[Rfam]
RNA: mir-9229 microRNA precursor family
Organism: Cnephaeus nilssonii
RNA sequence: GAGACAUCCAUAUGGAGUAGGACUUGCUUCAGUGGGACUUUGGUGCUCACUGCGUCUACCCCUUGAGUGUGUCACU
Numbered sequence: 001g002a003g004a005c006a007u008c009c010a011u012a013u014g015g016a017g018u019a020g021g022a023c024u025u026g027c028u029u030c031a032g033u034g035g036g037a038c039u040u041u042g043g044u045g046c047u048c049a050c051u052g053c054g055u056c057u058a059c060c061c062c063u064u065g066a067g068u069g070u071g072u073c074a075c076u
Stems, first nucleotide, its partner, number of pairs: 001075001003073005009067001011065002014062002017059003021056003030052007037044002